[Rfam]
RNA sequence: UGAUCGGACACGGGGUGCGCAUGAGGCGCUGAGAUCACACCCGUGGAACCUGAUGCAGUUCGCACUGACGAAGGGAUGUCCGCCGUGCGGUCA
Dot-bracket structure: .....(((((((((.(((((.....)))).......)..)))).....(((....(((......)))....)))..)))))............